[Rfam]
RNA: Small nucleolar RNA SNORA68
Organism: Cyclopterus lumpus
Nucleotides: 130
Stems, first nucleotide, its partner, number of pairs: 003058005009052001019044009070123007082109001084107006091100002
Number, partner (000 for none) and nucleotide at each position: 001000u002000c003058u004057g005056c006055a007054c008000c009052c010000a011000a012000a013000c014000c015000c016000a017000a018000a019044g020043g021042c022041c023040c024039c025038c026037c027036c028000c029000u030000g031000u032000c033000c034000g035000u036027g037026g038025g039024g040023g041022g042021g043020u044019c045000u046000u047000g048000u049000c050000u051000g052009g053000c054007g055006u056005g057004c058003a059000a060000a061000c062000a063000g064000g065000a066000a067000a068000c069000g070123g071122a072121c073120c074119c075118u076117u077000g078000u079000c080000g081000c082109c083000u084107u085106u086105u087104u088103g089102u090000c091100g092099c093000u094000g095000a096000c097000g098000u099092g100091c101000c102089g103088c104087a105086g106085a107084a108000u109082g110000u111000g112000a113000a114000a115000c116000c117076a118075g119074g120073g121072g122071u123070c124000a125000a126000c127000a128000c129000g130000c